[Rfam]
RNA: Ribosomal protein L10 leader
RNA sequence: AAUAAUUGAAUAGUAACGCCGUAGACAGUAGGUGUCAAAAGACUUAAUUUCCUACCUAGGUUUGUAUAUAUAGUUUUGAAACUAAUAUACCCUUAUGUCUACUGGCAUGAGGGUAUUUUUAUAUUAUA
Numbered sequence: 001a002a003u004a005a006u007u008g009a010a011u012a013g014u015a016a017c018g019c020c021g022u023a024g025a026c027a028g029u030a031g032g033u034g035u036c037a038a039a040a041g042a043c044u045u046a047a048u049u050u051c052c053u054a055c056c057u058a059g060g061u062u063u064g065u066a067u068a069u070a071u072a073g074u075u076u077u078g079a080a081a082c083u084a085a086u087a088u089a090c091c092c093u094u095a096u097g098u099c100u101a102c103u104g105g106c107a108u109g110a111g112g113g114u115a116u117u118u119u120u121a122u123a124u125u126a127u128a
Base pairs, nucleotide, nucleotide: 028055029054030053031052032051034043035042036041090113091112092111093110094109095108096107097106098105099104